[Rfam]
RNA: Mu-gpT-DE RNA
RNA sequence: CCUUAACAGUUACAUCAUGUAGCUGACAUUUGCCAAGAUAAGGAGAUUUACAUG
Dot-bracket structure: .((((.(((((.........))))).............))))............